[Rfam]
RNA sequence: UCAGGUCUAUGUCUCCGAGCCGUUUCACCUGGCGGAUUCUUCCUACGGUGCACGGCCUAUGGGUUCGGUUGGAAACGGCCGGGCCUCCCACGCUUGGAAAGGAGAAUCAGCCACCCUUUU
Numbered sequence: 001u002c003a004g005g006u007c008u009a010u011g012u013c014u015c016c017g018a019g020c021c022g023u024u025u026c027a028c029c030u031g032g033c034g035g036a037u038u039c040u041u042c043c044u045a046c047g048g049u050g051c052a053c054g055g056c057c058u059a060u061g062g063g064u065u066c067g068g069u070u071g072g073a074a075a076c077g078g079c080c081g082g083g084c085c086u087c088c089c090a091c092g093c094u095u096g097g098a099a100a101g102g103a104g105a106a107u108c109a110g111c112c113a114c115c116c117u118u119u120u
Stems, first nucleotide, its partner, number of pairs: 012105005019056005026050004034043003061086011087097002

Rfam assigns this 120-nucleotide sequence from Geothermobacter hydrogeniphilus to the family "Molybdenum/Tungsten riboswitch aptamer (Moco RNA motif)". Pairs were carried over by alignment from the consensus structure, which is taken from published work. A search with the family's covariance model found it, with a score of 69 bits.